[Rfam]
RNA sequence: UGUAUCAGUGAUGAUAAUAUGGCUCCCUCUACUGAAAACCGUGAGGAGAUUGCCACUGUUACCCAUUUUCUGUCUGAGAUACA
Numbered sequence: 001u002g003u004a005u006c007a008g009u010g011a012u013g014a015u016a017a018u019a020u021g022g023c024u025c026c027c028u029c030u031a032c033u034g035a036a037a038a039c040c041g042u043g044a045g046g047a048g049a050u051u052g053c054c055a056c057u058g059u060u061a062c063c064c065a066u067u068u069u070c071u072g073u074c075u076g077a078g079a080u081a082c083a
Stems, first nucleotide, its partner, number of pairs: 001083006
RNA: Small nucleolar RNA SNORD100